[Rfam]
RNA sequence: ACCCCGUCACAACGGCUUCCUGGCGUGACGGAGAAACCCGAAUGGAGCA
Numbered sequence: 001a002c003c004c005c006g007u008c009a010c011a012a013c014g015g016c017u018u019c020c021u022g023g024c025g026u027g028a029c030g031g032a033g034a035a036a037c038c039c040g041a042a043u044g045g046a047g048c049a
Stems, first nucleotide, its partner, number of pairs: 004031007013022002015048003019045002

Shown here is a 49-nucleotide RNA sequence from Sagittula stellata, a member of the family "SAM/SAH riboswitch aptamer".
The source organism's lineage runs through Bacteria, Rhodobacterales, Roseobacteraceae, Sagittula and Sagittula stellata.
For this family Rfam cites "The structure of the SAM/SAH-binding riboswitch" (Weickhmann et al., Nucleic Acids Res, 2019).
Its family is annotated with regulation of gene expression and S-adenosylmethionine metabolic process in the Gene Ontology.
Rfam's curators put it in the seed alignment.